[Rfam]
The family of this 66-nucleotide RNA sequence from Ureibacillus yapensis is "Bacillaceae-1 RNA". The family has 95 seed sequences and 5,721 matches in Rfam 15.1. The family's RNA type in Rfam is small RNA. Taxonomically the source falls in Ureibacillus (Bacteria, Bacillati, Bacillota, Caryophanaceae). The base pairs follow the family's consensus structure, which is taken from published work.
RNA sequence: AAUAGAGGAAGUAGCCUAAGAUCGUCGCGUCCUGCGACUACGGCUAAAUGACCUGCAUCGUGCAGG
Numbered sequence: 001a002a003u004a005g006a007g008g009a010a011g012u013a014g015c016c017u018a019a020g021a022u023c024g025u026c027g028c029g030u031c032c033u034g035c036g037a038c039u040a041c042g043g044c045u046a047a048a049u050g051a052c053c054u055g056c057a058u059c060g061u062g063c064a065g066g
Stems, first nucleotide, its partner, number of pairs: 012046005024038005052066005